[Rfam]
RNA: pemK RNA
RNA sequence: AUUAUGAUACUUCCGUCCAGUCACAGCCCUGCACGCGGGUGCGGGAACACGCAAUGAGGGCGGCUCGGGGAGAACCUCGGAGGGGUAUAAAACCCAUGA
Numbered sequence: 001a002u003u004a005u006g007a008u009a010c011u012u013c014c015g016u017c018c019a020g021u022c023a024c025a026g027c028c029c030u031g032c033a034c035g036c037g038g039g040u041g042c043g044g045g046a047a048c049a050c051g052c053a054a055u056g057a058g059g060g061c062g063g064c065u066c067g068g069g070g071a072g073a074a075c076c077u078c079g080g081a082g083g084g085g086u087a088u089a090a091a092a093c094c095c096a097u098g099a
Stems, first nucleotide, its partner, number of pairs: 012096001013063006064082003068078003083095003